[Rfam]
RNA: FMN riboswitch aptamer (RFN element)
Organism: Gordonia soli
RNA sequence: CAUAGUUCUCGGGGCGGGGUGAAAGUCCCCACCGGCGGUGAUCGUCCGCACGUCAGUGCGUGUGGACGGAAGCCCGCGAGCGCUCGCCGACAACGGCGAGGUCAGCAGAUCCGGUGUGAUUCCGGAGCCGACGGUCACAGUCCGGAUAUGAGAGAACAGGC
Numbered sequence: 001c002a003u004a005g006u007u008c009u010c011g012g013g014g015c016g017g018g019g020u021g022a023a024a025g026u027c028c029c030c031a032c033c034g035g036c037g038g039u040g041a042u043c044g045u046c047c048g049c050a051c052g053u054c055a056g057u058g059c060g061u062g063u064g065g066a067c068g069g070a071a072g073c074c075c076g077c078g079a080g081c082g083c084u085c086g087c088c089g090a091c092a093a094c095g096g097c098g099a100g101g102u103c104a105g106c107a108g109a110u111c112c113g114g115u116g117u118g119a120u121u122c123c124g125g126a127g128c129c130g131a132c133g134g135u136c137a138c139a140g141u142c143c144g145g146a147u148a149u150g151a152g153a154g155a156a157c158a159g160g161c
Stems, first nucleotide, its partner, number of pairs: 003159001005157006017029003031141002033130002035077004072128002080106002110126005132144003